RNA sequence: GUGGGUUAUGGAGACAUGUGCCCCAUUACCAUGGGCGGCAAGCUGGUUGGCACCUUGUGUGCCAUUGCUGGUGUGCUGACCCUUGCCCUACCUGUGCCCGUUAUCGUCUCCAAC
Numbered sequence: 001g002u003g004g005g006u007u008a009u010g011g012a013g014a015c016a017u018g019u020g021c022c023c024c025a026u027u028a029c030c031a032u033g034g035g036c037g038g039c040a041a042g043c044u045g046g047u048u049g050g051c052a053c054c055u056u057g058u059g060u061g062c063c064a065u066u067g068c069u070g071g072u073g074u075g076c077u078g079a080c081c082c083u084u085g086c087c088c089u090a091c092c093u094g095u096g097c098c099c100g101u102u103a104u105c106g107u108c109u110c111c112a113a114c
Base pairs, nucleotide, nucleotide: 001114002113004111005110008107009106010105011104013102014101015100018097019096020095021094037077038076039075040074049063050062051061
Potassium channel RNA editing signal: a 114-nucleotide RNA sequence from Scleropages formosus. A reference for the family is Bhalla et al. (2004), "Control of human potassium channel inactivation by editing of a small mRNA hairpin", Nat Struct Mol Biol. The source organism's lineage runs through Eukaryota, Deuterostomia, Osteoglossocephala, Osteoglossiformes and Scleropages.